[Rfam]
The record is a 151-nucleotide RNA sequence from Lactiplantibacillus kimchii, which matches "glmS glucosamine-6-phosphate activated ribozyme aptamer" in Rfam. The match comes from Rfam's covariance-model search (89 bits). The family's consensus secondary structure is taken from published work.
RNA sequence: UAAAGCGGAAUAGCGCCAGGACUUUAGAUAAUAAAGUUGACGAGGAUGACGUCUAUCGAAAAUCGACGGGUGACGUCAGGGACUGCACUCUAUAGGUCGGGUACAAAAGCUAGUCGUGAGAUUAGUGACAGAUAACUUGACCAAGCAGCUA
Numbered sequence: 001u002a003a004a005g006c007g008g009a010a011u012a013g014c015g016c017c018a019g020g021a022c023u024u025u026a027g028a029u030a031a032u033a034a035a036g037u038u039g040a041c042g043a044g045g046a047u048g049a050c051g052u053c054u055a056u057c058g059a060a061a062a063u064c065g066a067c068g069g070g071u072g073a074c075g076u077c078a079g080g081g082a083c084u085g086c087a088c089u090c091u092a093u094a095g096g097u098c099g100g101g102u103a104c105a106a107a108a109g110c111u112a113g114u115c116g117u118g119a120g121a122u123u124a125g126u127g128a129c130a131g132a133u134a135a136c137u138u139g140a141c142c143a144a145g146c147a148g149c150u151a
Stems, first nucleotide, its partner, number of pairs: 020038007048077005056066004078091004095142007109126007